RNA sequence: GACCUAAACCUUUAGAAAUAAAGGCAUGGUCGCGAAACACGGUCUGUGAUAAAGAACUCCUAGUCAGAGUUUGCACAGACCGUGUCAUAUCGGGAAACCGGUAUGGAUAACCGCAAGGUUAUC
Numbered sequence: 001g002a003c004c005u006a007a008a009c010c011u012u013u014a015g016a017a018a019u020a021a022a023g024g025c026a027u028g029g030u031c032g033c034g035a036a037a038c039a040c041g042g043u044c045u046g047u048g049a050u051a052a053a054g055a056a057c058u059c060c061u062a063g064u065c066a067g068a069g070u071u072u073g074c075a076c077a078g079a080c081c082g083u084g085u086c087a088u089a090u091c092g093g094g095a096a097a098c099c100g101g102u103a104u105g106g107a108u109a110a111c112c113g114c115a116a117g118g119u120u121a122u123c
Stems, first nucleotide, its partner, number of pairs: 001031004009024006038084011054072005086105008106123006
Shown here is a 123-nucleotide sequence, a member of the family "LOOT RNA". The sequence is in the family's curated seed alignment. Pairs were carried over by alignment from the consensus structure, which is taken from published work.